[Rfam]
Nucleotides: 047
Stems, first nucleotide, its partner, number of pairs: 003047002006045001009041003016036008
Number, partner (000 for none) and nucleotide at each position: 001000u002000c003047g004046g005000u006045c007000u008000g009041c010040g011039g012000u013000u014000c015000a016036c017035g018034c019033c020032u021031g022030c023029g024000a025000u026000c027000a028000g029023c030022g031021c032020a033019g034018g035017c036016g037000a038000c039011c040010c041009g042000g043000a044000g045006g046004c047003c